RNA sequence: CGAGAAUUUCGGCCUGCCGAACUUUUUCCAAAAAAGUUAGGAAAGUCCGGACACCAAAGAGCGGCAUAGCGGGUAAUGCCCGUCCACAGCGAUGUGAGGACCAGUGCAACAGAAAGCAGGUACAGGUAAGGCUGUAGUGAAAUCCGGUAAACUCUAUGCGGUGCAAUGCCAAGUAUAUCAUCUGCUAAGGCCUGCUCGGCCAAAGAUGAGGGGUAGGCAGCUAAAGCCGCGCAGCAAUGCACGGCUCAGAUAAAUGGCAGGCACAGGUUUUAUUUUUUUCCUGUACAGAAUCCGGCUUACAGAUUUUCUCGUGGU
Numbered sequence: 001c002g003a004g005a006a007u008u009u010c011g012g013c014c015u016g017c018c019g020a021a022c023u024u025u026u027u028c029c030a031a032a033a034a035a036g037u038u039a040g041g042a043a044a045g046u047c048c049g050g051a052c053a054c055c056a057a058a059g060a061g062c063g064g065c066a067u068a069g070c071g072g073g074u075a076a077u078g079c080c081c082g083u084c085c086a087c088a089g090c091g092a093u094g095u096g097a098g099g100a101c102c103a104g105u106g107c108a109a110c111a112g113a114a115a116g117c118a119g120g121u122a123c124a125g126g127u128a129a130g131g132c133u134g135u136a137g138u139g140a141a142a143u144c145c146g147g148u149a150a151a152c153u154c155u156a157u158g159c160g161g162u163g164c165a166a167u168g169c170c171a172a173g174u175a176u177a178u179c180a181u182c183u184g185c186u187a188a189g190g191c192c193u194g195c196u197c198g199g200c201c202a203a204a205g206a207u208g209a210g211g212g213g214u215a216g217g218c219a220g221c222u223a224a225a226g227c228c229g230c231g232c233a234g235c236a237a238u239g240c241a242c243g244g245c246u247c248a249g250a251u252a253a254a255u256g257g258c259a260g261g262c263a264c265a266g267g268u269u270u271u272a273u274u275u276u277u278u279u280c281c282u283g284u285a286c287a288g289a290a291u292c293c294g295g296c297u298u299a300c301a302g303a304u305u306u307u308c309u310c311g312u313g314g315u
Base pairs, nucleotide, nucleotide: 001311002310003309004308005307006306009303010302011300012262013261014260015259016258017257018256020038021037022036023035024034025033026032027031043298044297045296047295048294049293050292051291052163053162054161055160059197060196061195062194064159065158066157067156068155069083070082071081072080073079084098085096086095087094088093099154100153104152105151106148107147167219168218169217170216178209179208180207181206182205189201190200191199192198226245227244228243229242231240232239233238
Rfam assigns this 315-nucleotide RNA from Cruoricaptor ignavus to the family "Bacterial RNase P class A". Rfam classes the family as a ribozyme. It scores 211 bits against the family's covariance model. The family's consensus secondary structure is taken from published work.